[Rfam]
RNA sequence: GAAAGUUAGAGGUUCGAAGGCGAUCAGAUACCGCCCUAGUUCUAACUGUAAACGAUGCCAGCUAGCGAUCCGCCGGCGUUUCAUUAACGACCCGGCGGGCAGCUUCCGGGAAACCGAAGCUUUUCGGU
Numbered sequence: 001g002a003a004a005g006u007u008a009g010a011g012g013u014u015c016g017a018a019g020g021c022g023a024u025c026a027g028a029u030a031c032c033g034c035c036c037u038a039g040u041u042c043u044a045a046c047u048g049u050a051a052a053c054g055a056u057g058c059c060a061g062c063u064a065g066c067g068a069u070c071c072g073c074c075g076g077c078g079u080u081u082c083a084u085u086a087a088c089g090a091c092c093c094g095g096c097g098g099g100c101a102g103c104u105u106c107c108g109g110g111a112a113a114c115c116g117a118a119g120c121u122u123u124u125c126g127g128u
Stems, first nucleotide, its partner, number of pairs: 005046006015039001019035004057128003060121003064104003069099008078091003108115002
RNA: Eukaryotic small subunit ribosomal RNA, nucleotides 1278 to 1405